[Rfam]
Background
Purine riboswitch aptamer: a 102-nucleotide RNA sequence from Bhargavaea cecembensis. Pairs were carried over by alignment from the consensus structure, which is taken from published work. The match comes from Rfam's covariance-model search (79 bits). Its family is annotated with purine nucleobase biosynthetic process in the Gene Ontology. Rfam's curators write: Riboswitches are metabolite binding domains within certain messenger RNAs that serve as precision sensors for their corresponding targets.
RNA sequence: UCGGAUAGACCGGGUCGCCCUCAUAUAAGUCCGGAAAUAUGGUCCGGAUGUCUCUACCAGGCCGCCGUAAAUGGCCUGUCUAUGAAGGCGGAUGCUAUACGU
Numbered sequence: 001u002c003g004g005a006u007a008g009a010c011c012g013g014g015u016c017g018c019c020c021u022c023a024u025a026u027a028a029g030u031c032c033g034g035a036a037a038u039a040u041g042g043u044c045c046g047g048a049u050g051u052c053u054c055u056a057c058c059a060g061g062c063c064g065c066c067g068u069a070a071a072u073g074g075c076c077u078g079u080c081u082a083u084g085a086a087g088g089c090g091g092a093u094g095c096u097a098u099a100c101g102u
Base pairs, nucleotide, nucleotide: 018088019087021085022084023083024082025081029049030048031047032046033045034044035043058078059077060076061075062074063073064072

The organism belongs to Bhargavaea cecembensis, within Bacteria.